[Rfam]
RNA sequence: GUGGCAGUGAUGAUUGGCGCAGGGGUACGGACCUCAGCUGAUGAUGGGAGCUGAGUGGAAGUGUUGCUCUCUGUCAGCAGGCAAGUGGCUGGCUGUCAGAGACGCACUGACACGAUACAACCGCCUAAAUCUGAGCUGA
Numbered sequence: 001g002u003g004g005c006a007g008u009g010a011u012g013a014u015u016g017g018c019g020c021a022g023g024g025g026u027a028c029g030g031a032c033c034u035c036a037g038c039u040g041a042u043g044a045u046g047g048g049a050g051c052u053g054a055g056u057g058g059a060a061g062u063g064u065u066g067c068u069c070u071c072u073g074u075c076a077g078c079a080g081g082c083a084a085g086u087g088g089c090u091g092g093c094u095g096u097c098a099g100a101g102a103c104g105c106a107c108u109g110a111c112a113c114g115a116u117a118c119a120a121c122c123g124c125c126u127a128a129a130u131c132u133g134a135g136c137u138g139a
Stems, first nucleotide, its partner, number of pairs: 002138004
RNA: Small nucleolar RNA SNORD94